[Rfam]
RNA: malK-III RNA
RNA sequence: CGAGUCGGCACCUCGUAUGGGGUCCGUUCGCGCCGCCCCGGCGGCCGGAUGCAUGGACCCGCGAUGGCCCGGCAGGGUGGAAGGAGGCCGCCCAUG
Numbered sequence: 001c002g003a004g005u006c007g008g009c010a011c012c013u014c015g016u017a018u019g020g021g022g023u024c025c026g027u028u029c030g031c032g033c034c035g036c037c038c039c040g041g042c043g044g045c046c047g048g049a050u051g052c053a054u055g056g057a058c059c060c061g062c063g064a065u066g067g068c069c070c071g072g073c074a075g076g077g078u079g080g081a082a083g084g085a086g087g088c089c090g091c092c093c094a095u096g
Base pairs, nucleotide, nucleotide: 014063015062016061020060021059022058023057024056025055026050027049028048033044034043035042036041
Dot-bracket structure: .............(((...(((((((((....((((....))))...)))....))))))))).................................